[Rfam]
RNA sequence: AAAUGAAAUCACAAAAAGGAAGUCCUGAUUCAACAGGACUUCCUAUUGUGGAACCGUUUAAGACGGCAGCGCAUUUUUAGUUAUUAAAUA
Numbered sequence: 001a002a003a004u005g006a007a008a009u010c011a012c013a014a015a016a017a018g019g020a021a022g023u024c025c026u027g028a029u030u031c032a033a034c035a036g037g038a039c040u041u042c043c044u045a046u047u048g049u050g051g052a053a054c055c056g057u058u059u060a061a062g063a064c065g066g067c068a069g070c071g072c073a074u075u076u077u078u079a080g081u082u083a084u085u086a087a088a089u090a
Base pairs, nucleotide, nucleotide: 024037025036026035027034054066055065056064057063058062
RNA: RNA anti-toxin A
Organism: Lentilactobacillus buchneri